A member of the RNA family "mir-252 microRNA precursor family" from Apolygus lucorum, 96 nucleotides long. Taxonomically the source falls in Apolygus (Eukaryota, Protostomia, Arthropoda, Insecta). A reference for the family is Li et al. (2009), "Direct sequencing and expression analysis of a large number of miRNAs in Aedes aegypti and a multi-species survey of novel mosquito miRNAs", BMC Genomics.
[Rfam]
RNA sequence: AAAAUAAACUGAGCACUUGUGCAGCAGGUGUAGAAGGUAAAAUAUCUUUUUACAAAAGUCUUUUUACACCUGCUGCACAAGUGCUCAACUUAUUCA
Numbered sequence: 001a002a003a004a005u006a007a008a009c010u011g012a013g014c015a016c017u018u019g020u021g022c023a024g025c026a027g028g029u030g031u032a033g034a035a036g037g038u039a040a041a042a043u044a045u046c047u048u049u050u051u052a053c054a055a056a057a058g059u060c061u062u063u064u065u066a067c068a069c070c071u072g073c074u075g076c077a078c079a080a081g082u083g084c085u086c087a088a089c090u091u092a093u094u095c096a
Stems, first nucleotide, its partner, number of pairs: 003094005010087010024073014